The family of this 53-nucleotide RNA sequence is "Xanthine riboswitch aptamer (NMT1 RNA)".
For this family Rfam cites "Insights into xanthine riboswitch structure and metal ion-mediated ligand recognition" (Xu et al., Nucleic Acids Res, 2021).
Rfam links the family to the GO term purine nucleobase binding.
It is one of the family's seed sequences.
RNA sequence: CUGGCGAGUAGAAGCGGUUAGUGCCAGCGAUGGCAUAGGACAUUGCUCUUGCG
Number, nucleotide and partner (000 for none) at each position: 001c000002u000003g000004g000005c000006g048007a047008g046009u045010a044011g000012a000013a000014g000015c038016g000017g000018u040019u039020a000021g036022u035023g034024c033025c032026a031027g000028c000029g000030a000031u026032g025033g024034c023035a022036u021037a000038g015039g019040a018041c000042a000043u000044u010045g009046c008047u007048c006049u000050u000051g000052c000053g000